[Rfam]
Shown here is a 117-nucleotide sequence from Methylobacterium haplocladii, a member of the family "ALIL pseudoknot". The organism belongs to Methylobacterium, within Bacteria. The family's consensus secondary structure is taken from published work. Rfam classes the family as a cis-regulatory element.
RNA sequence: CGCGUAUUUUGCGUUUGCGGAGCUCGACCGCCGGUCGCGGACAUGAUCGCCUUUAUCGACGACCAUCGCGUCGUCUAUGGGGUCGAGCCGAUCUGCCGCGUGCUGCCGAUCGCCCCA
Numbered sequence: 001c002g003c004g005u006a007u008u009u010u011g012c013g014u015u016u017g018c019g020g021a022g023c024u025c026g027a028c029c030g031c032c033g034g035u036c037g038c039g040g041a042c043a044u045g046a047u048c049g050c051c052u053u054u055a056u057c058g059a060c061g062a063c064c065a066u067c068g069c070g071u072c073g074u075c076u077a078u079g080g081g082g083u084c085g086a087g088c089c090g091a092u093c094u095g096c097c098g099c100g101u102g103c104u105g106c107c108g109a110u111c112g113c114c115c116c117a
Stems, first nucleotide, its partner, number of pairs: 017031004078117005089112002092109002095106002098103001